[Rfam]
The family of this 212-nucleotide RNA from Asticcacaulis excentricus is "permuted transfer-messenger RNA".
By type it is a non-coding RNA gene.
On this family, see Felden et al., RNA 1997: "Probing the structure of the Escherichia coli 10Sa RNA (tmRNA)".
A search with the family's covariance model found it, with a score of 144 bits.
Nucleotides: 212
Stems, first nucleotide, its partner, number of pairs: 001133005014122003025112002029109003035051005052095007134148003
Number, partner (000 for none) and nucleotide at each position: 001133g002132g003131g004130g005129a006000u007000a008000a009000a010000c011000g012000c013000c014122c015121a016120c017000g018000u019000a020000a021000u022000a023000a024000g025112c026111g027000g028000a029109c030108u031107g032000g033000a034000c035051c036050c037049g038048g039047g040000u041000g042000c043000g044000a045000u046000u047039c048038c049037c050036g051035g052095c053094g054093g055092c056091u057090c058089c059000a060000c061000c062000a063000u064000u065000u066000c067000c068000c069000u070000c071000c072000g073000u074000u075000u076000a077000c078000g079000g080000a081000g082000u083000u084000u085000a086000c087000a088000u089058g090057g091056g092055g093054c094053c095052g096000a097000u098000c099000a100000g101000c102000a103000u104000c105000g106000a107031c108030a109029g110000a111026c112025g113000u114000g115000u116000a117000a118000a119000g120016g121015u122014g123000u124000a125000g126000c127000c128000u129005u130004c131003c132002c133001u134148c135147a136146g137000u138000u139000u140000g141000a142000g143000c144000c145000u146136c147135u148134g149000u150000g151000a152000u153000c154000g155000g156000c157000u158000c159000a160000a161000a162000a163000u164000u165000a166000u167000a168000g169000u170000u171000g172000c173000g174000a175000a176000c177000g178000a179000u180000a181000a182000c183000u184000u185000c186000g187000c188000u189000u190000c191000g192000g193000a194000u195000c196000a197000a198000g199000c200000u201000c202000u203000u204000g205000c206000u207000g208000c209000g210000u211000a212000a